[Rfam]
RNA sequence: GCGACGGCUAGGGGAGGCUUAAUUACCCGCCCCGAAAAGUCGGCAUCACCACCGAUCUGCCGUCGCGAUUCUAUUUCAAUG
Numbered sequence: 001g002c003g004a005c006g007g008c009u010a011g012g013g014g015a016g017g018c019u020u021a022a023u024u025a026c027c028c029g030c031c032c033c034g035a036a037a038a039g040u041c042g043g044c045a046u047c048a049c050c051a052c053c054g055a056u057c058u059g060c061c062g063u064c065g066c067g068a069u070u071c072u073a074u075u076u077c078a079a080u081g
Stems, first nucleotide, its partner, number of pairs: 001066008011033003039056005046081001051076001
RNA: int-alpA RNA
Organism: Neorhodopirellula pilleata